[Rfam]
RNA: Small nucleolar RNA R11/Z151
Organism: Carnegiea gigantea
RNA sequence: GGGUUGAUGAUGAUAACAUAAAUAUCUUAGCGGAUUUCAAUGAGAUCAAUGAUCUAUGAUCUGUUUGUUACACACACUGAAGCCC
Numbered sequence: 001g002g003g004u005u006g007a008u009g010a011u012g013a014u015a016a017c018a019u020a021a022a023u024a025u026c027u028u029a030g031c032g033g034a035u036u037u038c039a040a041u042g043a044g045a046u047c048a049a050u051g052a053u054c055u056a057u058g059a060u061c062u063g064u065u066u067g068u069u070a071c072a073c074a075c076a077c078u079g080a081a082g083c084c085c
Stems, first nucleotide, its partner, number of pairs: 001085005